[Rfam]
RNA: ASpks TB sRNA
RNA sequence: UUUGACGGAGCCCAGCCACAGCGGCUCGUCUUCCGGCCGCUCCUGUCCGUAGGUGGCCAGCAGUGCCUGCGCCUC
Number, nucleotide and partner (000 for none) at each position: 001u000002u000003u000004g000005a000006c000007g000008g000009a000010g000011c000012c000013c000014a026015g025016c024017c023018a000019c000020a000021g000022c000023g017024g016025c015026u014027c000028g000029u000030c000031u071032u000033c069034c000035g000036g000037c000038c065039g064040c000041u000042c000043c060044u059045g058046u000047c056048c055049g054050u000051a000052g000053g000054u049055g048056g047057c000058c045059a044060g043061c000062a000063g000064u039065g038066c000067c000068u000069g033070c000071g031072c000073c000074u000075c000